[Rfam]
This 79-nucleotide RNA sequence from Aquibacillus halophilus belongs to the Rfam family "ZMP/ZTP riboswitch aptamer (pfl RNA motif)".
RNA sequence: AAGACUAUGUGUGACUGGCGAACGCGGAUAAACCGCGAGGGAGCACAUAGUGUCAUAGCCGUUCGCCUGGGCAGAGGUA
Numbered sequence: 001a002a003g004a005c006u007a008u009g010u011g012u013g014a015c016u017g018g019c020g021a022a023c024g025c026g027g028a029u030a031a032a033c034c035g036c037g038a039g040g041g042a043g044c045a046c047a048u049a050g051u052g053u054c055a056u057a058g059c060c061g062u063u064c065g066c067c068u069g070g071g072c073a074g075a076g077g078u079a
Stems, first nucleotide, its partner, number of pairs: 004051009015040002017067005024036004056074001058072003

The family's consensus secondary structure is taken from published work. NCBI's taxonomy places the organism under Bacteria, Bacillota, Caryophanales, Bacillaceae, Aquibacillus.